[Rfam]
RNA sequence: UACAUCCUGCGAUGUGCGUUUCGGUAUUCCGUUGUUUUGAACCAAUGACGAUGUCUCGGGAGAUCAACAUCGUUUCGUGGCUGAAAAGCCCUGUCUAUACGACAAGGGGAAUUCAUAUACGAAUCUGAGGUCACCCACCUGUUUACGCAGGUUCGAAGACAAUGUUACCGGACGGCAUAGGCGGGUUUUUA
Numbered sequence: 001u002a003c004a005u006c007c008u009g010c011g012a013u014g015u016g017c018g019u020u021u022c023g024g025u026a027u028u029c030c031g032u033u034g035u036u037u038u039g040a041a042c043c044a045a046u047g048a049c050g051a052u053g054u055c056u057c058g059g060g061a062g063a064u065c066a067a068c069a070u071c072g073u074u075u076c077g078u079g080g081c082u083g084a085a086a087a088g089c090c091c092u093g094u095c096u097a098u099a100c101g102a103c104a105a106g107g108g109g110a111a112u113u114c115a116u117a118u119a120c121g122a123a124u125c126u127g128a129g130g131u132c133a134c135c136c137a138c139c140u141g142u143u144u145a146c147g148c149a150g151g152u153u154c155g156a157a158g159a160c161a162a163u164g165u166u167a168c169c170g171g172a173c174g175g176c177a178u179a180g181g182c183g184g185g186u187u188u189u190u191a
Stems, first nucleotide, its partner, number of pairs: 002189001004187001006185005012178004017174003033161003036157001038155006058136003062132004069126001072125001074123005084113002089109004
RNA: 6S / SsrS RNA
Organism: Paenibacillus uliginis